Group II catalytic intron D1-D4-3: a 172-nucleotide RNA.
The family has 406 seed sequences and 4,274 matches in Rfam 15.1.

RNA sequence: AUGAGGGUGACCGAAUGUGGGGAGGAAGCGUGGAGCGUAAAUCGCGAACCGAUGGACAAGAACUGCAUAGAAGGCGCUGCCGAGUAGGGCAAGUGGGCAUGUAUCCACAAAGCUCUUGUGAUCAAGGCGACGCGGCGUAAAUGCAGCGGUUGUGCGAUGAAGGAGUGCGUUC
Numbered sequence: 001a002u003g004a005g006g007g008u009g010a011c012c013g014a015a016u017g018u019g020g021g022g023a024g025g026a027a028g029c030g031u032g033g034a035g036c037g038u039a040a041a042u043c044g045c046g047a048a049c050c051g052a053u054g055g056a057c058a059a060g061a062a063c064u065g066c067a068u069a070g071a072a073g074g075c076g077c078u079g080c081c082g083a084g085u086a087g088g089g090c091a092a093g094u095g096g097g098c099a100u101g102u103a104u105c106c107a108c109a110a111a112g113c114u115c116u117u118g119u120g121a122u123c124a125a126g127g128c129g130a131c132g133c134g135g136c137g138u139a140a141a142u143g144c145a146g147c148g149g150u151u152g153u154g155c156g157a158u159g160a161a162g163g164a165g166u167g168c169g170u171u172c
Base pairs, nucleotide, nucleotide: 001016002015005012006011028172030170031169032168036163041158042157043156044155045154046153047151048150049149050148051147063146064145065144066143067142068141074138075137076136078134079133080132084131085130087115088114089113090112093108094107095106096105
Group II introns are found in rRNA, tRNA and mRNA of organelles in fungi, plants and protists, and also in mRNA in bacteria. It scores 107 bits against the family's covariance model.